[Rfam]
RNA sequence: AACCACACCAUCGAUGAAUGGAUUCACCCGUGAGAUGACGUGGUUGUUCUAUCUAGGUUGAGGACGUGGCAUCCUAUUAAUUUUUCGUGUGAUGGCUGGUAAUAGGAUGUCAUGUCCUCGUCUUAGGUGAAACAGCCAUGUUAUCCCGUGGGUGAAUCCAUUCAUCGAUAGUGUGGUU
Numbered sequence: 001a002a003c004c005a006c007a008c009c010a011u012c013g014a015u016g017a018a019u020g021g022a023u024u025c026a027c028c029c030g031u032g033a034g035a036u037g038a039c040g041u042g043g044u045u046g047u048u049c050u051a052u053c054u055a056g057g058u059u060g061a062g063g064a065c066g067u068g069g070c071a072u073c074c075u076a077u078u079a080a081u082u083u084u085u086c087g088u089g090u091g092a093u094g095g096c097u098g099g100u101a102a103u104a105g106g107a108u109g110u111c112a113u114g115u116c117c118u119c120g121u122c123u124u125a126g127g128u129g130a131a132a133c134a135g136c137c138a139u140g141u142u143a144u145c146c147c148g149u150g151g152g153u154g155a156a157u158c159c160a161u162u163c164a165u166c167g168a169u170a171g172u173g174u175g176g177u178u
Base pairs, nucleotide, nucleotide: 001178002177003176004175005174006173007172010169011168012167013166014165015164017162018161019160021158022157023156024155025154026153027152028151030149031148032147035144036143037142038141039140041138042137043136044135045134046133047132048131051128052127054125055124057122063116064115065114069110070109071108072107073106074105075104076103077102078101079100

Rfam assigns this 178-nucleotide sequence from Oryza rufipogon to the family "MIR807 microRNA precursor family". Pairs were carried over by alignment from the consensus structure, which was predicted with WAR. Taxonomically the source falls in Oryza (Eukaryota, Spermatophyta, Mesangiospermae, Oryzoideae). On this family, see Luo et al., FEBS Lett 2006: "Rice embryogenic calli express a unique set of microRNAs, suggesting regulatory roles of microRNAs in plant post-embryogenic development".